A member of the RNA family "Small nucleolar RNA snoR99" from Artemisia annua, 134 nucleotides long.

RNA sequence: UUGCUUUAGGGAUGGAAAAUAUAAAUCCCCAAAUAAUCGAUUCCACCCUUUCACUUUGUCAGCCACUUUCAUUAGCUUUAUUUUUUUUUAAAACUGAUUUUCCAAGUUGCUGAUCAUUUCUGGGUGGUAGAUCU
Numbered sequence: 001u002u003g004c005u006u007u008a009g010g011g012a013u014g015g016a017a018a019a020u021a022u023a024a025a026u027c028c029c030c031a032a033a034u035a036a037u038c039g040a041u042u043c044c045a046c047c048c049u050u051u052c053a054c055u056u057u058g059u060c061a062g063c064c065a066c067u068u069u070c071a072u073u074a075g076c077u078u079u080a081u082u083u084u085u086u087u088u089u090a091a092a093a094c095u096g097a098u099u100u101u102c103c104a105a106g107u108u109g110c111u112g113a114u115c116a117u118u119u120c121u122g123g124g125u126g127g128u129a130g131a132u133c134u
Stems, first nucleotide, its partner, number of pairs: 043127005058114006065107004
Taxonomically the source falls in Artemisia (Eukaryota, Euphyllophyta, Magnoliopsida, campanulids). For this family Rfam cites "Experimental RNomics: identification of 140 candidates for small non-messenger RNAs in the plant Arabidopsis thaliana" (Marker et al., Curr Biol, 2002).